Shown here is a 162-nucleotide RNA from Kouleothrix aurantiaca, a member of the family "M-box riboswitch aptamer (ykoK leader)". It scores 113 bits against the family's covariance model.
RNA sequence: GUGCUCUCUCGUUAGGUGCGGCGUCUACACAGACACAAGUCGUUGCCCUGGCCCGUCGAAAGACGCUCAAGGGUAGACCAGGGCGGUCCGAGCUAAGGCUCGCUCUAAUGCGACUGCGAAAGCUACGCUGUGUAGUGCCAAAGCUCAAGUUGGGGAGAAGCC
Numbered sequence: 001g002u003g004c005u006c007u008c009u010c011g012u013u014a015g016g017u018g019c020g021g022c023g024u025c026u027a028c029a030c031a032g033a034c035a036c037a038a039g040u041c042g043u044u045g046c047c048c049u050g051g052c053c054c055g056u057c058g059a060a061a062g063a064c065g066c067u068c069a070a071g072g073g074u075a076g077a078c079c080a081g082g083g084c085g086g087u088c089c090g091a092g093c094u095a096a097g098g099c100u101c102g103c104u105c106u107a108a109u110g111c112g113a114c115u116g117c118g119a120a121a122g123c124u125a126c127g128c129u130g131u132g133u134a135g136u137g138c139c140a141a142a143g144c145u146c147a148a149g150u151u152g153g154g155g156a157g158a159a160g161c162c
Stems, first nucleotide, its partner, number of pairs: 005158006013096001015145003020139003025135008039114005045074005054065004081105004088098002116123002
Its family is annotated with response to magnesium ion and regulation of gene expression in the Gene Ontology.
The base pairs follow the family's consensus structure.
NCBI's taxonomy places the organism under Bacteria, Bacillati, Roseiflexineae, Roseiflexaceae, Kouleothrix.